Background:
The family of this 71-nucleotide RNA from Toxocara canis is "RAGATH-18 RNA". A search with the family's covariance model found it, with a score of 63 bits. Actinobacteria, Firmicutes, Fusobacteria, Thermotogae (1 example). By type it is a small RNA.
RNA sequence: CCUUUGGACUGCUAUAUAAACUAGAGUAGAUAUUCUUAUGAAUUUCGAAAUAUGGCAGGAUGAAAAAGGAA
Numbered sequence: 001c002c003u004u005u006g007g008a009c010u011g012c013u014a015u016a017u018a019a020a021c022u023a024g025a026g027u028a029g030a031u032a033u034u035c036u037u038a039u040g041a042a043u044u045u046c047g048a049a050a051u052a053u054g055g056c057a058g059g060a061u062g063a064a065a066a067a068g069g070a071a
Base pairs, nucleotide, nucleotide: 001069002068003067004066005065009058010057011056012055013054022052023051029046030045033042034041